[Rfam]
RNA sequence: UGCAAGUAUUCUGCGAUUCAGAAGCAACUGUGUCUUGUACAAAUUGUGUAUUAAUCC
Numbered sequence: 001u002g003c004a005a006g007u008a009u010u011c012u013g014c015g016a017u018u019c020a021g022a023a024g025c026a027a028c029u030g031u032g033u034c035u036u037g038u039a040c041a042a043a044u045u046g047u048g049u050a051u052u053a054a055u056c057c
Base pairs, nucleotide, nucleotide: 018037020035021034022033024031025030
Record summary: The family of this 57-nucleotide RNA sequence from Gossypium gossypioides is "Plastid-rps18 3UTR RNA". Plastid rps18 is a non-coding RNA (ncRNA) present in plastids. The family has 238 seed sequences and 1,462 matches in Rfam 15.1. NCBI's taxonomy places the organism under Eukaryota, Viridiplantae, Mesangiospermae, Gunneridae, Gossypium. On this family, see Richter et al., Plant Commun 2023: "Retrograde signaling in plants: A critical review focusing on the GUN pathway and beyond".